[Rfam]
RNA sequence: UUAACUGAGAUUUGUAUGGAAUCGGAACGUUUCCUACGUUUGCCGCUAGGGGCGCUGUUCCAACUGCAUACAAAUUUGAGUUA
Numbered sequence: 001u002u003a004a005c006u007g008a009g010a011u012u013u014g015u016a017u018g019g020a021a022u023c024g025g026a027a028c029g030u031u032u033c034c035u036a037c038g039u040u041u042g043c044c045g046c047u048a049g050g051g052g053c054g055c056u057g058u059u060c061c062a063a064c065u066g067c068a069u070a071c072a073a074a075u076u077u078g079a080g081u082u083a
Stems, first nucleotide, its partner, number of pairs: 008077009018067001020065001022063001024061006033051003038046002
The record is an 83-nucleotide sequence from Bombyx mori, which matches "mir-2807 microRNA precursor family" in Rfam. The family's consensus secondary structure was predicted with RNAalifold. The match comes from Rfam's covariance-model search (76 bits). A reference for the family is Liu et al. (2010), "MicroRNAs of Bombyx mori identified by Solexa sequencing", BMC Genomics. Rfam links the family to the GO terms miRNA-mediated post-transcriptional gene silencing and RISC complex.